RNA sequence: ACACAGGGAAGGAGGUGGUCCGGAAAAUUGAUAGCUUCUAGGACAUGUGAGGUGGCUGCCCGCUAGCAGCACCAGGUGCCGGGAAUCACCUGCGCCCUGCGCGCGCUGGCGAAUCCCAGGCAGCUACCCGGCCCCCGAGCUCUUGGUGAGUCCUGCCAAGGAAUACCGGCUCGGGGGCCGCCCCAU
Number, nucleotide and partner (000 for none) at each position: 001a000002c000003a000004c000005a000006g000007g000008g000009a000010a000011g000012g000013a000014g060015g059016u058017g057018g056019u055020c000021c000022g000023g000024a000025a000026a000027a000028u000029u000030g000031a000032u000033a000034g000035c000036u000037u000038c000039u000040a000041g000042g000043a000044c000045a000046u000047g000048u000049g000050a000051g000052g000053u000054g000055g019056c018057u017058g016059c015060c014061c111062g110063c109064u108065a107066g106067c105068a000069g104070c103071a000072c101073c000074a098075g097076g096077u000078g000079c000080c000081g000082g000083g000084a000085a000086u000087c000088a000089c000090c000091u000092g000093c000094g000095c000096c076097c075098u074099g000100c000101g072102c000103g070104c069105g067106c066107u065108g064109g063110c062111g061112a000113a000114u000115c000116c000117c000118a000119g000120g000121c000122a000123g000124c000125u000126a000127c000128c000129c180130g179131g178132c177133c176134c175135c174136c173137g172138a171139g170140c169141u168142c160143u159144u158145g157146g156147u155148g000149a000150g000151u000152c000153c000154u000155g147156c146157c145158a144159a143160g142161g000162a000163a000164u000165a000166c000167c000168g141169g140170c139171u138172c137173g136174g135175g134176g133177g132178c131179c130180g129181c000182c000183c000184c000185a000186u000
Notes:
The family of this 186-nucleotide RNA sequence from Mycobacterium sp. shizuoka-1 is "Actinobacteria sRNA Ms_IGR-5". The organism belongs to Mycobacterium, within Bacteria. The literature on the family includes a 2013 paper in RNA by Li et al., "Identification of small RNAs in Mycobacterium smegmatis using heterologous Hfq". The family's RNA type in Rfam is small RNA.